Record summary
The family of this 107-nucleotide RNA sequence from Bacillus sp. SJS is "SAM riboswitch aptamer (S box leader)". Rfam links the family to the GO term regulation of gene expression. About the family: The SAM riboswitch is found upstream of a number of genes which code for proteins involved in methionine or cysteine biosynthesis in Gram-positive bacteria.
[Rfam]
RNA sequence: CUUUUAUCAAGAGCAGGCGGAGGGACAAGCCCUAUGAAGCCCGGCAACCGGUUGACCAUGGUCAAUACGGUGCUAAUUCUUGCAGCGUUUACGCUGACAGAUAAGAG
Numbered sequence: 001c002u003u004u005u006a007u008c009a010a011g012a013g014c015a016g017g018c019g020g021a022g023g024g025a026c027a028a029g030c031c032c033u034a035u036g037a038a039g040c041c042c043g044g045c046a047a048c049c050g051g052u053u054g055a056c057c058a059u060g061g062u063c064a065a066u067a068c069g070g071u072g073c074u075a076a077u078u079c080u081u082g083c084a085g086c087g088u089u090u091a092c093g094c095u096g097a098c099a100g101a102u103a104a105g106a107g
Stems, first nucleotide, its partner, number of pairs: 001107008013042001016041003022032003026082004043074004048070002051066004078099001083096005